[Rfam]
RNA sequence: CGCGCAGCAGGACGGAAAGACCCCGGGACCUUUACUAUAGCUUGGUAUUGGUGUUCGGUACGGCUUGUGUAGGAUAGGUGGGAGACUGUGAAGCAUGCACGCCAGUGUGUGUGGAGUCAACGUUGAAAUACCACUCUGGUCGUUCUGGAUAUCUAACCUAGGUCCGUGAUCCGGAUCAGGGACAUUGCCUGGUGGGUAGUUUAACUGGGGCGGUUGCCUCCUAAAAGGUAACGGAGGCGCUCAAAGGUUCCCUCAGCCUGGUUGGUAAUCAGGUUUUGAGUGUAAGUGCACAAGGGAGCUUGACUGCGAGACAGGCAUGUCGAGCAGGGACGAAAGUCGGAACUAGUGACCCGGCGCUGGCUUGUGGAAGCGGCGUCGCUCAACGGAUAAAAGGUACCCCGGGGAUAACAGGCUGAUCUUGCCCAAGAGUCCAUAUCGACGGCAUGGUUUGGCACCUCGAUGUCGGCUCGUCGCAUCCUGGGGGUGGAGUCUCUCCCAAGGGUUGGGCUGUUCGCCCAUUAAAGCGGUACGCGAGCUGGGUUUAGAACGUCGUGAGACAGUUCGGUCCCUAUCCGCUGUGCGCGUA
Numbered sequence: 001c002g003c004g005c006a007g008c009a010g011g012a013c014g015g016a017a018a019g020a021c022c023c024c025g026g027g028a029c030c031u032u033u034a035c036u037a038u039a040g041c042u043u044g045g046u047a048u049u050g051g052u053g054u055u056c057g058g059u060a061c062g063g064c065u066u067g068u069g070u071a072g073g074a075u076a077g078g079u080g081g082g083a084g085a086c087u088g089u090g091a092a093g094c095a096u097g098c099a100c101g102c103c104a105g106u107g108u109g110u111g112u113g114g115a116g117u118c119a120a121c122g123u124u125g126a127a128a129u130a131c132c133a134c135u136c137u138g139g140u141c142g143u144u145c146u147g148g149a150u151a152u153c154u155a156a157c158c159u160a161g162g163u164c165c166g167u168g169a170u171c172c173g174g175a176u177c178a179g180g181g182a183c184a185u186u187g188c189c190u191g192g193u194g195g196g197u198a199g200u201u202u203a204a205c206u207g208g209g210g211c212g213g214u215u216g217c218c219u220c221c222u223a224a225a226a227g228g229u230a231a232c233g234g235a236g237g238c239g240c241u242c243a244a245a246g247g248u249u250c251c252c253u254c255a256g257c258c259u260g261g262u263u264g265g266u267a268a269u270c271a272g273g274u275u276u277u278g279a280g281u282g283u284a285a286g287u288g289c290a291c292a293a294g295g296g297a298g299c300u301u302g303a304c305u306g307c308g309a310g311a312c313a314g315g316c317a318u319g320u321c322g323a324g325c326a327g328g329g330a331c332g333a334a335a336g337u338c339g340g341a342a343c344u345a346g347u348g349a350c351c352c353g354g355c356g357c358u359g360g361c362u363u364g365u366g367g368a369a370g371c372g373g374c375g376u377c378g379c380u381c382a383a384c385g386g387a388u389a390a391a392a393g394g395u396a397c398c399c400c401g402g403g404g405a406u407a408a409c410a411g412g413c414u415g416a417u418c419u420u421g422c423c424c425a426a427g428a429g430u431c432c433a434u435a436u437c438g439a440c441g442g443c444a445u446g447g448u449u450u451g452g453c454a455c456c457u458c459g460a461u462g463u464c465g466g467c468u469c470g471u472c473g474c475a476u477c478c479u480g481g482g483g484g485u486g487g488a489g490u491c492u493c494u495c496c497c498a499a500g501g502g503u504u505g506g507g508c509u510g511u512u513c514g515c516c517c518a519u520u521a522a523a524g525c526g527g528u529a530c531g532c533g534a535g536c537u538g539g540g541u542u543u544a545g546a547a548c549g550u551c552g553u554g555a556g557a558c559a560g561u562u563c564g565g566u567c568c569c570u571a572u573c574c575g576c577u578g579u580g581c582g583c584g585u586a
Base pairs, nucleotide, nucleotide: 001582002581003580004579005578006577007576008575010574011573012572014569015568022403023402024401025400026399027398028395029394030393031392032391034200035199036198037197041192042191044189045188046187047186050153051152052151053150054149055148056147057146058145060143061142062141063140064139065138067136077135078134079133080132081131084118085117086116093112094111095110096109097108098107099106100105157180158179159178161177162176163175164174165173166172203215204214205213206212216238217237218236219235220234221233239384241341242340247299248298249297250296251295252294253279254278256274257273258272259271260270261269280289281288304327305326306325307324310321311320312319329338330337331336352378353377354376355375356374357373358372360371361370412453413452414451416450417447418446420444421443422442423441427437428436464539465537466536467535468534469531470528471527472526473525474524477502478501480497481496482495483494484493504518505517506516507515508514545563546562547561548560549558550557551556
This 586-nucleotide part of an RNA from Knoellia aerolata belongs to the Rfam family "Bacterial large subunit ribosomal RNA". Its family is annotated with structural constituent of ribosome and ribosome in the Gene Ontology. The family's consensus secondary structure is taken from published work. The match comes from Rfam's covariance-model search (2821 bits).